RNA sequence: GUGCCUUAAACUAAUGAGUAAGGAAAAUUACAAGCCUUGGUAAUGCUUGGCUUAGCUUUGUAGCAUUAAAGUCGUUUCGACUUUUAUCAAGCGCCAAUUUUUGUAGGGGUACAGGUCGUCCUUUUGAGCUAUUACCUACUUUGUAAUAGCUUGAGUGAAGCGAUCUACCCG
Numbered sequence: 001g002u003g004c005c006u007u008a009a010a011c012u013a014a015u016g017a018g019u020a021a022g023g024a025a026a027a028u029u030a031c032a033a034g035c036c037u038u039g040g041u042a043a044u045g046c047u048u049g050g051c052u053u054a055g056c057u058u059u060g061u062a063g064c065a066u067u068a069a070a071g072u073c074g075u076u077u078c079g080a081c082u083u084u085u086a087u088c089a090a091g092c093g094c095c096a097a098u099u100u101u102u103g104u105a106g107g108g109g110u111a112c113a114g115g116u117c118g119u120c121c122u123u124u125u126g127a128g129c130u131a132u133u134a135c136c137u138a139c140u141u142u143g144u145a146a147u148a149g150c151u152u153g154a155g156u157g158a159a160g161c162g163a164u165c166u167a168c169c170c171g
Base pairs, nucleotide, nucleotide: 004023005022006021007020008019032053033052034051035050036049039046055092056091057090058089107170108169109168110167113166114165115164116163117162118161119160122155123154126152127151128150129149131147132146133145134144135143
RNA: U12 minor spliceosomal RNA